[Rfam]
RNA: THF (Tetrahydrofolate) riboswitch aptamer
Organism: Facklamia languida
RNA sequence: AACAGAGUAGGUUGUCUACGUUAAGUGCUUCUAGAUGGGAUGUAGCUAGAAGACGAAGCGAGCAGUGCGCGAUAGACGACCGCCUCCGCUGUA
Numbered sequence: 001a002a003c004a005g006a007g008u009a010g011g012u013u014g015u016c017u018a019c020g021u022u023a024a025g026u027g028c029u030u031c032u033a034g035a036u037g038g039g040a041u042g043u044a045g046c047u048a049g050a051a052g053a054c055g056a057a058g059c060g061a062g063c064a065g066u067g068c069g070c071g072a073u074a075g076a077c078g079a080c081c082g083c084c085u086c087c088g089c090u091g092u093a
Base pairs, nucleotide, nucleotide: 002092003091004090005089010081011080012079013078014077015076016075017074018073019071020070021069025054026053028052029051030050031049032048033047034046038087039086040085042083058068059067060066